[Rfam]
This 170-nucleotide RNA sequence from Ectobacillus ponti belongs to the Rfam family "glmS glucosamine-6-phosphate activated ribozyme aptamer". A search with the family's covariance model found it, with a score of 138 bits.
RNA sequence: GUGUACUGAACAGCGCCUGAGCUGAAUGAAACGGUCUGUCAUUCAGCUGACGAGGAGGAGGUUUAUCGAGCAUUCGGCGGAUGCCUCCCGGCUGCAGCGAUUGCAGCCGUCAAAUUCUCUUGUAAAACAAGGGGGUAACCCUUUGCACAAAUAGGGGAAUAUAAUCGCAA
Number, nucleotide and partner (000 for none) at each position: 001g000002u000003g000004u000005a000006c000007u000008g000009a000010a000011c000012a000013g000014c000015g000016c000017c000018u000019g000020a048021g047022c046023u045024g044025a043026a042027u041028g000029a039030a000031a000032c000033g000034g000035u000036c000037u000038g000039u029040c000041a027042u026043u025044c024045a023046g022047c021048u020049g000050a000051c000052g000053a000054g000055g000056a000057g088058g087059a086060g085061g084062u000063u000064u000065a000066u077067c076068g075069a074070g000071c000072a000073u000074u069075c068076g067077g066078c000079g000080g000081a000082u000083g000084c061085c060086u059087c058088c057089c109090g108091g107092c106093u105094g104095c103096a102097g000098c000099g000100a000101u000102u096103g095104c094105a093106g092107c091108c090109g089110u000111c000112a000113a000114a160115u159116u158117c157118u156119c155120u154121u000122g000123u000124a000125a000126a000127a000128c145129a144130a143131g142132g141133g140134g139135g000136u000137a000138a000139c134140c133141c132142u131143u130144u129145g128146c000147a000148c000149a000150a000151a000152u000153a000154g120155g119156g118157g117158a116159a115160u114161a000162u000163a000164a000165u000166c000167g000168c000169a000170a000
Lineage of the source: Bacteria > Bacillati > Bacilli > Caryophanales > Ectobacillus. About the family: This entry contains a glucosamine-6-phosphate activated ribozyme that is found in the mRNA for GlmS. GlmS is an enzyme that uses fructose-6-phosphate and glutamine to generate glucosamine-6-phosphate. By type it is a riboswitch.